[Rfam]
RNA sequence: UUCUUAUCUAGAGAGGCAGAGGGACUGGCCCGUUGAAGCCUCAGCAACCACUGGUGAUACCAGAAAGGUGCUAAUUCCAGCAAGUUGUACCAACAACUUGGAAGAUAAGAA
Numbered sequence: 001u002u003c004u005u006a007u008c009u010a011g012a013g014a015g016g017c018a019g020a021g022g023g024a025c026u027g028g029c030c031c032g033u034u035g036a037a038g039c040c041u042c043a044g045c046a047a048c049c050a051c052u053g054g055u056g057a058u059a060c061c062a063g064a065a066a067g068g069u070g071c072u073a074a075u076u077c078c079a080g081c082a083a084g085u086u087g088u089a090c091c092a093a094c095a096a097c098u099u100g101g102a103a104g105a106u107a108a109g110a111a
Stems, first nucleotide, its partner, number of pairs: 001111008013042005021031003025080004043072004048068002051063003076103001081100006
Dot-bracket structure: ((((((((....(((((...(((.[[[[)))......)))))((((.((.(((.......)))...))))))...(]]]]((((((........))))))..)))))))))
This 111-nucleotide sequence from Thalassobacillus cyri belongs to the Rfam family "SAM riboswitch aptamer (S box leader)". Lineage of the source: Bacteria > Bacillati > Bacillota > Caryophanales > Thalassobacillus.